[Rfam]
RNA sequence: CUGCUGUGAUGAUACCCACUUGGUUUCGCUCACUACUGAUGCGUGGUGGGGACAAUUCCACUUGGCUGUCUGAGUAG
Numbered sequence: 001c002u003g004c005u006g007u008g009a010u011g012a013u014a015c016c017c018a019c020u021u022g023g024u025u026u027c028g029c030u031c032a033c034u035a036c037u038g039a040u041g042c043g044u045g046g047u048g049g050g051g052a053c054a055a056u057u058c059c060a061c062u063u064g065g066c067u068g069u070c071u072g073a074g075u076a077g
Stems, first nucleotide, its partner, number of pairs: 001077004

The family of this 77-nucleotide RNA from Oceanites oceanicus is "Small nucleolar RNA SNORD53/SNORD92". Lineage of the source: Eukaryota > Metazoa > Bilateria > Chordata > Oceanites. Rfam 15.1 lists 2,250 matches to the family in 671 species. Gene Ontology terms of the family: RNA processing and nucleolus. For this family Rfam cites "Site-specific ribose methylation of preribosomal RNA: a novel function for small nucleolar RNAs" (Kiss-Laszlo et al., Cell, 1996).